Glycine riboswitch aptamer: an 87-nucleotide RNA from Paracidovorax valerianellae. The organism belongs to Paracidovorax, within Bacteria.
[Rfam]
RNA sequence: GUCAGGAGAGAGCGCCGCAGUCCCAAGGGAUGGCCGGCGCCGCCGAAGGCGCAGGGUGACCCCGAACGCUCAGGCAAAAGGACUGGC
Numbered sequence: 001g002u003c004a005g006g007a008g009a010g011a012g013c014g015c016c017g018c019a020g021u022c023c024c025a026a027g028g029g030a031u032g033g034c035c036g037g038c039g040c041c042g043c044c045g046a047a048g049g050c051g052c053a054g055g056g057u058g059a060c061c062c063c064g065a066a067c068g069c070u071c072a073g074g075c076a077a078a079a080g081g082a083c084u085g086g087c
Base pairs, nucleotide, nucleotide: 001087002086003085004084005083012040013039014038015037016036017035042075043074044073045071046070049069050068051067055063056062
Dot-bracket structure: (((((......((((((.................)))))).(((((..(((...((.....))...))))).))).......)))))